Nucleotides: 130
Stems, first nucleotide, its partner, number of pairs: 002059004007054002011050001020045004024040005070124002074120001089104004
Number, partner (000 for none) and nucleotide at each position: 001000u002059g003058g004057a005056c006000c007054u008053u009000a010000a011050c012000u013000u014000u015000u016000a017000u018000u019000c020045a021044g022043u023042u024040u025039c026038u027037u028036c029000u030000u031000a032000a033000g034000g035000u036028g037027a038026a039025g040024a041000a042023a043022a044021c045020u046000c047000u048000u049000u050011g051000c052000a053008a054007a055000a056005g057004u058003c059002c060000c061000a062000g063000g064000g065000a066000a067000a068000u069000a070124u071123g072000a073000g074120a075000a076000c077000u078000u079000u080000u081000g082000c083000u084000u085000c086000a087000c088000c089104c090103u091102u092101u093000g094000c095000a096000a097000g098000u099000a100000a101092a102091a103090a104089g105000g106000a107000u108000a109000g110000a111000u112000c113000a114000u115000u116000c117000c118000a119000c120074u121000g122000c123071u124070g125000a126000c127000a128000u129000a130000u